RNA sequence: GCCCACGUAGCUCAAUGGUCAGAGCGUGCGGCUUUUAACCGCAAGGCUGCGAGUUCGACCCUCGCCGUGGGCU
Numbered sequence: 001g002c003c004c005a006c007g008u009a010g011c012u013c014a015a016u017g018g019u020c021a022g023a024g025c026g027u028g029c030g031g032c033u034u035u036u037a038a039c040c041g042c043a044a045g046g047c048u049g050c051g052a053g054u055u056c057g058a059c060c061c062u063c064g065c066c067g068u069g070g071g072c073u
Stems, first nucleotide, its partner, number of pairs: 001072007010025004027043005049065005

Source information: Shown here is a 73-nucleotide RNA from Histoplasma mississippiense, a member of the family "tRNA". A search with the family's covariance model found it, with a score of 73 bits. NCBI's taxonomy places the organism under Eukaryota, Ascomycota, leotiomyceta, Onygenales, Histoplasma. Rfam links the family to the GO term triplet codon-amino acid adaptor activity. Rfam classes the family as a transfer RNA. Transfer RNA (tRNA) molecules are approximately 80 nucleotides in length.